Description: The family of this 53-nucleotide RNA from Gellertiella hungarica is "serC leader". Its family is annotated with regulation of gene expression in the Gene Ontology. Rfam classes the family as a cis-regulatory leader. From the family's description: This family is a putative regulatory RNA structure that is found upstream of the serC-serA operon in some alpha-proteobacteria. The final stem of the structure overlaps the ribosome binding site of the serC reading frame. The base pairs follow the family's consensus structure. Taxonomically the source falls in Gellertiella (Bacteria, Pseudomonadati, Hyphomicrobiales, Rhizobiaceae). On this family, see Corbino et al., Genome Biol 2005: "Evidence for a second class of S-adenosylmethionine riboswitches and other regulatory RNA motifs in alpha-proteobacteria".
RNA sequence: CGGCGGGCAACCUCUCCCCACCGAGAGGCUAACUAUCUGGAAGGAUAGAUCUA
Numbered sequence: 001c002g003g004c005g006g007g008c009a010a011c012c013u014c015u016c017c018c019c020a021c022c023g024a025g026a027g028g029c030u031a032a033c034u035a036u037c038u039g040g041a042a043g044g045a046u047a048g049a050u051c052u053a
Stems, first nucleotide, its partner, number of pairs: 011028006033048006